[Rfam]
Nucleotides: 141
Stems, first nucleotide, its partner, number of pairs: 002061006015054003018047006024040005064130002067127004071122004081109004
Number, partner (000 for none) and nucleotide at each position: 001000u002061g003060c004059a005058c006057u007056g008000u009000g010000u011000g012000a013000u014000a015054u016053c017052u018047g019046c020045a021044u022043u023042u024040a025039g026038c027037a028036g029000c030000u031000u032000a033000c034000u035000c036028c037027u038026g039025c040024u041000g042023g043022g044021g045020u046019g047018u048000u049000c050000a051000a052017a053016g054015g055000a056007c057006a058005g059004u060003g061002u062000g063000a064130u065129a066000u067127a068126a069125a070124u071122u072121c073120a074119g075000a076000a077000u078000c079000u080000g081109g082108c083107a084106u085000a086000a087000u088000g089000u090000u091000g092000g093000u094000u095000u096000u097000c098000u099000u100000g101000g102000c103000u104000u105000u106084g107083u108082g109081c110000a111000u112000g113000u114000u115000c116000a117000a118000c119074c120073u121072g122071g123000u124070a125069u126068u127067u128000u129065u130064a131000u132000u133000g134000a135000u136000a137000c138000a139000a140000u141000a